Rfam assigns this 99-nucleotide RNA sequence from Sulfurovum sp. AR to the family "c-di-GMP-I riboswitch aptamer".
RNA sequence: UAAGAUAAAUGCUACACCUGUUGUGAGGCAGGGUCAGAAAGCCAUGGGUCUUUCAUACUAUCAUUUGAUAGUAACAGAGAAGAUUGCCAGGUUACCUAA
Number, nucleotide and partner (000 for none) at each position: 001u000002a000003a000004g000005a000006u000007a000008a000009a000010u000011g000012c037013u036014a000015c000016a000017c032018c031019u030020g029021u028022u027023g000024u000025g000026a000027g022028g021029c020030a019031g018032g017033g000034u000035c000036a013037g012038a000039a000040a093041g092042c091043c090044a000045u089046g088047g087048g084049u083050c082051u081052u080053u079054c000055a000056u000057a000058c000059u000060a000061u000062c000063a000064u000065u000066u000067g000068a000069u000070a000071g000072u000073a000074a000075c000076a000077g000078a000079g053080a052081a051082g050083a049084u048085u000086g000087c047088c046089a045090g043091g042092u041093u040094a000095c000096c000097u000098a000099a000

NCBI's taxonomy places the organism under Bacteria, Campylobacterota, Epsilonproteobacteria, Campylobacterales, Sulfurovum.